This 151-nucleotide sequence from Pelotomaculum isophthalicicum belongs to the Rfam family "c-di-AMP riboswitch aptamer (ydaO/yuaA leader)".
[Rfam]
Nucleotides: 151
Stems, first nucleotide, its partner, number of pairs: 012135003019036005039130005049056001058116003066093002096110004
Number, partner (000 for none) and nucleotide at each position: 001000u002000g003000u004000u005000a006000a007000a008000u009000a010000a011000a012135g013134c014133c015000g016000a017000a018000u019036c020035c021034c022033c023032g024000a025000u026000a027000u028000a029000u030000u031000a032023c033022g034021g035020g036019g037000u038000a039130c040129g041128g042127g043126g044000g045000a046000c047000a048000a049056a050000a051000u052000u053000u054000u055000u056049u057000g058116g059115g060114g061000u062000g063000a064000a065000u066093c067092c068000g069000g070000a071000u072000u073000a074000a075000c076000c077000g078000c079000g080000a081000g082000c083000g084000g085000u086000u087000a088000u089000a090000a091000a092067g093066g094000u095000a096110g097109g098108g099107u100000g101000c102000c103000c104000u105000c106000u107099a108098c109097c110096c111000g112000a113000a114060c115059c116058c117000u118000u119000c120000a121000g122000c123000u124000a125000a126043c127042c128041c129040c130039g131000a132000a133014g134013g135012c136000g137000g138000a139000g140000g141000a142000g143000g144000g145000a146000u147000u148000u149000u150000a151000u
Overview:
Taxonomically the source falls in Pelotomaculum isophthalicicum (Bacteria, Bacillota, Clostridia, Desulfotomaculaceae).